[Rfam]
RNA: Small nucleolar SNORD12/SNORD106
Organism: Microcaecilia unicolor
RNA sequence: GCUGAUAUAUAUGAUGACUAAAUCUUUUUUCCCCAACAGAUCGACCCUGUUGAAUUGUAUCAUGCUUUUUAGCCAGUUGGAAUCUGAUAUAUCAGC
Numbered sequence: 001g002c003u004g005a006u007a008u009a010u011a012u013g014a015u016g017a018c019u020a021a022a023u024c025u026u027u028u029u030u031c032c033c034c035a036a037c038a039g040a041u042c043g044a045c046c047c048u049g050u051u052g053a054a055u056u057g058u059a060u061c062a063u064g065c066u067u068u069u070u071a072g073c074c075a076g077u078u079g080g081a082a083u084c085u086g087a088u089a090u091a092u093c094a095g096c
Base pairs, nucleotide, nucleotide: 001096002095003094004093005092006091007090008089009088